[Rfam]
RNA sequence: GAGUUAUCUAAGGAAAUAGUAGCCGUGAUUUUUCAUACGAUCUUCUCACAUAUCACAGUUGCUGUUUCUUUUAGAUAGCUC
Numbered sequence: 001g002a003g004u005u006a007u008c009u010a011a012g013g014a015a016a017u018a019g020u021a022g023c024c025g026u027g028a029u030u031u032u033u034c035a036u037a038c039g040a041u042c043u044u045c046u047c048a049c050a051u052a053u054c055a056c057a058g059u060u061g062c063u064g065u066u067u068c069u070u071u072u073a074g075a076u077a078g079c080u081c
Base pairs, nucleotide, nucleotide: 001081002080003079004078005077006076007075008074009073010072011071012070013068014067015066016065017064018063019062020061021060022059023058025056026055027054028053029052
A member of the RNA family "mir-994 microRNA precursor family" from Scaptodrosophila lebanonensis, 81 nucleotides long. The match comes from Rfam's covariance-model search (98 bits). Rfam 15.1 lists 18 matches to the family in 18 species. Rfam links the family to the GO terms miRNA-mediated post-transcriptional gene silencing and RISC complex.